Rfam assigns this 91-nucleotide RNA from Saliterribacillus persicus to the family "c-di-GMP-I-GGC riboswitch aptamer".
The organism belongs to Saliterribacillus, within Bacteria.
Gene Ontology term of the family: cyclic-di-GMP binding.
[Rfam]
RNA sequence: UCAGAGAAAGGCAAACCUAUUGAAAAAUAGGGACGCAAAGUUACAGAUCUUCUAUUGCUUUAUAGCAAUAAUGAUGGCUGUGCUGCCUGAA
Numbered sequence: 001u002c003a004g005a006g007a008a009a010g011g012c013a014a015a016c017c018u019a020u021u022g023a024a025a026a027a028u029a030g031g032g033a034c035g036c037a038a039a040g041u042u043a044c045a046g047a048u049c050u051u052c053u054a055u056u057g058c059u060u061u062a063u064a065g066c067a068a069u070a071a072u073g074a075u076g077g078c079u080g081u082g083c084u085g086c087c088u089g090a091a
Stems, first nucleotide, its partner, number of pairs: 001091001003088002011036002016031006034077001039084003044080003047075003